A member of the RNA family "Vault RNA" from Salvator merianae, 88 nucleotides long. The match comes from Rfam's covariance-model search (65 bits). Rfam classes the family as a non-coding RNA gene. Pairs were carried over by alignment from the consensus structure, which is taken from published work. This family of RNAs are found as part of the enigmatic vault ribonucleoprotein complex. The complex consists of a major vault protein (MVP), two minor vault proteins (VPARP and TEP1), and several small untranslated RNA molecules. It has been suggested that the vault complex is involved in drug resistance. A reference for the family is Stadler et al. (2009), "Evolution of Vault RNAs", Mol Biol Evol.
[Rfam]
Nucleotides: 088
Stems, first nucleotide, its partner, number of pairs: 002083006012072004017068004025062004
Number, partner (000 for none) and nucleotide at each position: 001000g002083g003082g004081c005080c006079a007078g008000c009000u010000u011000a012072g013071c014070u015069u016000c017068g018067c019066g020065g021000u022000u023000a024000c025062u026061u027060c028059g029000u030000g031000c032000c033000c034000a035000g036000a037000c038000a039000c040000c041000g042000a043000g044000a045000c046000g047000c048000u049000u050000c051000u052000a053000g054000c055000a056000g057000u058000u059028c060027g061026a062025g063000a064000c065020c066019c067018g068017c069015g070014g071013g072012c073000g074000c075000u076000g077000u078007c079006u080005g081004g082003u083002c084000u085000u086000u087000u088000g